[Rfam]
Nucleotides: 144
Base pairs, nucleotide, nucleotide: 020032021031022030023029041074042073043072044071045070050062051061052060053059075088076087077086078085091134093132094131095130096129097128106119107118108117109116110115
Number, partner (000 for none) and nucleotide at each position: 001000a002000a003000a004000a005000a006000c007000u008000a009000a010000u011000a012000a013000g014000c015000g016000c017000c018000u019000g020032a021031u022030c023029c024000g025000a026000u027000a028000a029023g030022g031021a032020u033000g034000a035000c036000g037000a038000g039000g040000u041074u042073u043072g044071g045070a046000g047000u048000u049000a050062u051061c052060g053059a054000a055000a056000u057000u058000u059053u060052c061051g062050g063000c064000g065000g066000a067000u068000g069000c070045u071044c072043c073042a074041a075088a076087g077086g078085u079000a080000u081000c082000a083000c084000a085078g086077c087076c088075u089000a090000a091134g092000u093132a094131u095130u096129c097128u098000u099000u100000a101000a102000a103000a104000a105000u106119u107118a108117a109116g110115a111000g112000u113000a114000a115110u116109c117108u118107u119106a120000u121000a122000a123000c124000a125000a126000a127000g128097a129096g130095a131094a132093u133000u134091c135000a136000g137000u138000g139000a140000a141000u142000c143000u144000c
Annotation
The family of this 144-nucleotide RNA sequence from Peptoniphilus sp. oral taxon 386 is "glmS glucosamine-6-phosphate activated ribozyme aptamer". Rfam classes the family as a riboswitch. NCBI's taxonomy places the organism under Bacteria, Bacillota, Tissierellia, Peptoniphilaceae, Peptoniphilus sp. oral taxon 386. A search with the family's covariance model found it, with a score of 77 bits. The base pairs follow the family's consensus structure, which is taken from published work.